[Rfam]
RNA sequence: CCGCACACCAGUAGACCUUGUCUGGUUCCUCUGGUAGCUGGACGAGGGGGAUGGUGCAUGCGACAGAAACGGGGAGUUUGUGCAAGCUCUCGUCAGCCUUGACGUGCCUGAUUGAGCUGCAGUGCUCCAACACAG
Numbered sequence: 001c002c003g004c005a006c007a008c009c010a011g012u013a014g015a016c017c018u019u020g021u022c023u024g025g026u027u028c029c030u031c032u033g034g035u036a037g038c039u040g041g042a043c044g045a046g047g048g049g050g051a052u053g054g055u056g057c058a059u060g061c062g063a064c065a066g067a068a069a070c071g072g073g074g075a076g077u078u079u080g081u082g083c084a085a086g087c088u089c090u091c092g093u094c095a096g097c098c099u100u101g102a103c104g105u106g107c108c109u110g111a112u113u114g115a116g117c118u119g120c121a122g123u124g125c126u127c128c129a130a131c132a133c134a135g
Stems, first nucleotide, its partner, number of pairs: 003061003008056001016047009073128004078124001081121003093111004